Annotation
Rfam assigns this 171-nucleotide sequence from Suricata suricatta to the family "TUC338". The family's consensus secondary structure was predicted with WAR.
RNA sequence: UUGAAGGCGUGGAGACUGAAGUCCUCUCUCUGUCCGCAGAACAGGUAUGGCACAGGCGGUGGCCCUGCAGCUUGCCACCGUCCCAGCAAUGUGCCUCACUCCUAGCAGAGGGAGACCAUGUCGAGGGAAAGAGGGCUGUUCAGUCUCCAUGCCUUUCACUCUUGAGCUGCU
Numbered sequence: 001u002u003g004a005a006g007g008c009g010u011g012g013a014g015a016c017u018g019a020a021g022u023c024c025u026c027u028c029u030c031u032g033u034c035c036g037c038a039g040a041a042c043a044g045g046u047a048u049g050g051c052a053c054a055g056g057c058g059g060u061g062g063c064c065c066u067g068c069a070g071c072u073u074g075c076c077a078c079c080g081u082c083c084c085a086g087c088a089a090u091g092u093g094c095c096u097c098a099c100u101c102c103u104a105g106c107a108g109a110g111g112g113a114g115a116c117c118a119u120g121u122c123g124a125g126g127g128a129a130a131g132a133g134g135g136c137u138g139u140u141c142a143g144u145c146u147c148c149a150u151g152c153c154u155u156u157c158a159c160u161c162u163u164g165a166g167c168u169g170c171u
Stems, first nucleotide, its partner, number of pairs: 002158003006153002010149011023135002026133002029131001031129001033128002038103002041100001047096001050094005061082003110122002113119001
The family has 34 seed sequences and 75,615 matches in Rfam 15.1.